[Rfam]
RNA sequence: AUAGGUUUUUGCUCAUGCACCAUGGUUGUCUGAGCAUGCAGCAUGCUUGUCUGCUCAUACCCCAUGGUUCCUGAGCAGGAACCGUC
Number, nucleotide and partner (000 for none) at each position: 001a000002u000003a000004g083005g082006u081007u080008u079009u078010u077011g076012c075013u074014c073015a072016u000017g070018c000019a068020c067021c066022a065023u064024g063025g062026u000027u000028g060029u059030c000031u057032g056033a055034g054035c053036a052037u000038g050039c049040a048041g047042c000043a000044u000045g000046c000047u041048u040049g039050u038051c000052u036053g035054c034055u033056c032057a031058u000059a029060c028061c000062c025063c024064a023065u022066g021067g020068u019069u000070c017071c000072u015073g014074a013075g012076c011077a010078g009079g008080a007081a006082c005083c004084g000085u000086c000
mir-767 microRNA precursor family: an 86-nucleotide sequence from Bos taurus. Pairs were carried over by alignment from the consensus structure, which was predicted with RNAalifold. Lineage of the source: Eukaryota > Dipnotetrapodomorpha > Eutheria > Laurasiatheria > Bos. Gene Ontology terms of the family: miRNA-mediated post-transcriptional gene silencing and RISC complex. The literature on the family includes a 2006 paper in Genome Res by Berezikov et al., "Many novel mammalian microRNA candidates identified by extensive cloning and RAKE analysis".